[Rfam]
RNA: mraW RNA
Organism: Arcanobacterium bovis
RNA sequence: GUGUUCUGAGGUCACUCGGCUUCCUACCGCAGUCUUGAGGUAAUUCCCCAACUUCAAGCCGGCGGUGGGGAACCAAGUGAACUCAGCUCACACUA
Numbered sequence: 001g002u003g004u005u006c007u008g009a010g011g012u013c014a015c016u017c018g019g020c021u022u023c024c025u026a027c028c029g030c031a032g033u034c035u036u037g038a039g040g041u042a043a044u045u046c047c048c049c050a051a052c053u054u055c056a057a058g059c060c061g062g063c064g065g066u067g068g069g070g071a072a073c074c075a076a077g078u079g080a081a082c083u084c085a086g087c088u089c090a091c092a093c094u095a
Base pairs, nucleotide, nucleotide: 010082012080013079014078015077016076018074019073021071022070023069024068025067026066027065028064029063030062032060034058035057036056037055038054039053040052041051